RNA sequence: CAAACGGCUCUUCUCAGAGCCACCACAUUUCCAAGAAAGAACGAAA
Numbered sequence: 001c002a003a004a005c006g007g008c009u010c011u012u013c014u015c016a017g018a019g020c021c022a023c024c025a026c027a028u029u030u031c032c033a034a035g036a037a038a039g040a041a042c043g044a045a046a
Stems, first nucleotide, its partner, number of pairs: 006021006